The family of this 80-nucleotide RNA sequence from Hermetia illucens is "drz-agam-1 ribozyme".
For this family Rfam cites "Widespread occurrence of self-cleaving ribozymes" (Webb et al., Science, 2009).
NCBI's taxonomy places the organism under Eukaryota, Mandibulata, Dicondylia, Stratiomyidae, Hermetia.
A search with the family's covariance model found it, with a score of 38 bits.
RNA sequence: AAUCUACCAAACCCUAUCGCCACCUCCACGUGGUGAUUGUUGGAAGUUCUUUCUUAAUGAAAAACUGCGGACGGGGAAGG
Numbered sequence: 001a002a003u004c005u006a007c008c009a010a011a012c013c014c015u016a017u018c019g020c021c022a023c024c025u026c027c028a029c030g031u032g033g034u035g036a037u038u039g040u041u042g043g044a045a046g047u048u049c050u051u052u053c054u055u056a057a058u059g060a061a062a063a064a065c066u067g068c069g070g071a072c073g074g075g076g077a078a079g080g
Base pairs, nucleotide, nucleotide: 013080014079015078017076018075020073022034023033024032045066046065047064048063050061051060053059